[Rfam]
RNA sequence: CAGUAUUACAGCUCUUUCAGAAUUUGUCUAGCAGGUUUUCCAGUAUUCAUCGGAAACUCCCCC
Numbered sequence: 001c002a003g004u005a006u007u008a009c010a011g012c013u014c015u016u017u018c019a020g021a022a023u024u025u026g027u028c029u030a031g032c033a034g035g036u037u038u039u040c041c042a043g044u045a046u047u048c049a050u051c052g053g054a055a056a057c058u059c060c061c062c063c
Base pairs, nucleotide, nucleotide: 034060035059037056038055039054040053041052043050044049
U7 small nuclear RNA: a 63-nucleotide RNA from Mandrillus leucophaeus. About the family: Animal histone pre-mRNAs are spliced by a different mechanism than nuclear pre-mRNAs and self-splicing introns. A search with the family's covariance model found it, with a score of 59 bits.